Alphaproteobacterial ar15: a 111-nucleotide sequence from Pararhizobium polonicum. The family has 61 seed sequences and 316 matches in Rfam 15.1. Its family is annotated with protein binding in the Gene Ontology. Lineage of the source: Bacteria > Alphaproteobacteria > Hyphomicrobiales > Rhizobiaceae > Pararhizobium. The base pairs follow the family's consensus structure. Rfam classes the family as a small RNA.

RNA sequence: AGCUGAUGCACACGAUGGUCUCCUCCCAGUUUCCAUCGCACCAGCUGUUCCCCUCUGGAGGUUUUGACCUUCACACCUUAAUGGGCCUCGGUUUUCCGAUGGCCCUUUCUU
Numbered sequence: 001a002g003c004u005g006a007u008g009c010a011c012a013c014g015a016u017g018g019u020c021u022c023c024u025c026c027c028a029g030u031u032u033c034c035a036u037c038g039c040a041c042c043a044g045c046u047g048u049u050c051c052c053c054u055c056u057g058g059a060g061g062u063u064u065u066g067a068c069c070u071u072c073a074c075a076c077c078u079u080a081a082u083g084g085g086c087c088u089c090g091g092u093u094u095u096c097c098g099a100u101g102g103c104c105c106u107u108u109c110u111u
Stems, first nucleotide, its partner, number of pairs: 001046005007040003015036004056073007083105005088099004